[Rfam]
RNA: Transposase-2 RNA
RNA sequence: GAAGUGCGAACCAAGCAGGCGCAAGAGAGCGCUGUGAGACUUGGAGCUGGCCUUGGUAACGAGGUCAUGCA
Numbered sequence: 001g002a003a004g005u006g007c008g009a010a011c012c013a014a015g016c017a018g019g020c021g022c023a024a025g026a027g028a029g030c031g032c033u034g035u036g037a038g039a040c041u042u043g044g045a046g047c048u049g050g051c052c053u054u055g056g057u058a059a060c061g062a063g064g065u066c067a068u069g070c071a
Stems, first nucleotide, its partner, number of pairs: 011044005018033005048067008